RNA sequence: GGAGGUGGGAACAUGACAUUCGAUUCAAAUAGAAUCAUCCUUUUGGAUGAGCUUGAGCAUGAGAUGGAAGGAAUUAUUUAUGAAUGCAGAAUCUAAAUCAAAUCAACAUUGUUUUGCUUCCUGUUUUUAUGAACAGGGAGUUUU
Numbered sequence: 001g002g003a004g005g006u007g008g009g010a011a012c013a014u015g016a017c018a019u020u021c022g023a024u025u026c027a028a029a030u031a032g033a034a035u036c037a038u039c040c041u042u043u044u045g046g047a048u049g050a051g052c053u054u055g056a057g058c059a060u061g062a063g064a065u066g067g068a069a070g071g072a073a074u075u076a077u078u079u080a081u082g083a084a085u086g087c088a089g090a091a092u093c094u095a096a097a098u099c100a101a102a103u104c105a106a107c108a109u110u111g112u113u114u115u116g117c118u119u120c121c122u123g124u125u126u127u128u129a130u131g132a133a134c135a136g137g138g139a140g141u142u143u144u
Base pairs, nucleotide, nucleotide: 023048024047025046026045027044028043029042052082055078056077059074060072094116095115096114097113099111100110101109103108117140118139119138120137121136122135123134124133125132126131

Shown here is a 144-nucleotide sequence from Bacillus subtilis, a member of the family "Bacillus sRNA ncr952".
The family's RNA type in Rfam is small RNA.